Shown here is a 63-nucleotide RNA from Piliocolobus tephrosceles, a member of the family "U7 small nuclear RNA". The family's consensus secondary structure was predicted with PFOLD. Animal histone pre-mRNAs are spliced by a different mechanism than nuclear pre-mRNAs and self-splicing introns. This processing involves the U7 snRNP, which contains only one RNA species: U7. The 5' end of U7 RNA is thought to base-pair to a conserved spacer element downstream of the cleavage site in histone pre-mRNA. This family contains a number of annotated U7 pseudogenes. The organism belongs to Piliocolobus, within Eukaryota.
RNA sequence: CAGUGUUAACAGCUCUUUUAGAAUUUGUCUAGCAGGAUUUUCAGUUUUUGUCAGAAAGCCCCU
Dot-bracket structure: ..................................((.((((..((....))..)))).))...
Numbered sequence: 001c002a003g004u005g006u007u008a009a010c011a012g013c014u015c016u017u018u019u020a021g022a023a024u025u026u027g028u029c030u031a032g033c034a035g036g037a038u039u040u041u042c043a044g045u046u047u048u049u050g051u052c053a054g055a056a057a058g059c060c061c062c063u
Stems, first nucleotide, its partner, number of pairs: 035060002038057004044051002